[Rfam]
RNA sequence: GACCUAACCCCGAAGAACUCGUUUUUCGGAUAUGGUCGAAAACCCCCGCUAGAGAUUAAAAGACUCCCAGUCAGAGUCGCUCUAGCGGGUCGUGUCUCGAAAGGGAUACGGGUGGUCGCCGAAAGGCACCAUC
Numbered sequence: 001g002a003c004c005u006a007a008c009c010c011c012g013a014a015g016a017a018c019u020c021g022u023u024u025u026u027c028g029g030a031u032a033u034g035g036u037c038g039a040a041a042a043c044c045c046c047c048g049c050u051a052g053a054g055a056u057u058a059a060a061a062g063a064c065u066c067c068c069a070g071u072c073a074g075a076g077u078c079g080c081u082c083u084a085g086c087g088g089g090u091c092g093u094g095u096c097u098c099g100a101a102a103g104g105g106a107u108a109c110g111g112g113u114g115g116u117c118g119c120c121g122a123a124a125g126g127c128a129c130c131a132u133c
Stems, first nucleotide, its partner, number of pairs: 001037004010029008045089010062078004091110008111133006
Shown here is a 133-nucleotide RNA sequence, a member of the family "LOOT RNA". Rfam classes the family as a small RNA.